Background
Shown here is a 123-nucleotide RNA from Clostridium sp. FS41, a member of the family "cis-regulatory element of the bglG/LicT operon". The sequence is in the family's curated seed alignment. The base pairs follow the family's consensus structure, which was predicted with LocARNA. For this family Rfam cites "Genome-wide identification of regulatory RNAs in the human pathogen Clostridium difficile" (Soutourina et al., PLoS Genet, 2013). The organism belongs to Clostridium, within Bacteria.

RNA sequence: AACUUAUGUGACUAGGGAGUCACGAAGUGAGUAUGUUACUGGUAUGCAGGCAGAACUCAGAUUACACUGAAAAUUUUUAUUUUCCGUGUAGUUUGAGUUUUUUUUUCUGGAAAGGAGGAUCUA
Numbered sequence: 001a002a003c004u005u006a007u008g009u010g011a012c013u014a015g016g017g018a019g020u021c022a023c024g025a026a027g028u029g030a031g032u033a034u035g036u037u038a039c040u041g042g043u044a045u046g047c048a049g050g051c052a053g054a055a056c057u058c059a060g061a062u063u064a065c066a067c068u069g070a071a072a073a074u075u076u077u078u079a080u081u082u083u084c085c086g087u088g089u090a091g092u093u094u095g096a097g098u099u100u101u102u103u104u105u106u107c108u109g110g111a112a113a114g115g116a117g118g119a120u121c122u123a
Stems, first nucleotide, its partner, number of pairs: 002032004007024006033122001035120003039117002043113001047109003052101016069084002